This 93-nucleotide sequence from Chrysochloris asiatica belongs to the Rfam family "Small nucleolar RNA SNORD116". By type it is a C/D-box small nucleolar RNA.
Nucleotides: 093
Stems, first nucleotide, its partner, number of pairs: 001093005026056005032048003
Number, partner (000 for none) and nucleotide at each position: 001093g002092g003091a004090u005089c006000a007000a008000u009000g010000a011000u012000g013000a014000u015000g016000u017000c018000g019000a020000c021000a022000u023000a024000a025000a026056c027055a028054u029053u030052c031000c032048u033047u034046g035000g036000a037000a038000a039000a040000g041000c042000u043000g044000a045000a046034c047033a048032a049000u050000u051000u052030g053029a054028g055027u056026g057000g058000a059000a060000a061000c062000u063000c064000a065000c066000u067000a068000u069000g070000g071000u072000c073000u074000c075000a076000c077000u078000c079000a080000u081000u082000a083000a084000a085000c086000u087000g088000a089005g090004g091003u092002c093001u
Gene Ontology terms of the family: nucleolus and RNA processing. The base pairs follow the family's consensus structure, which was predicted with PFOLD.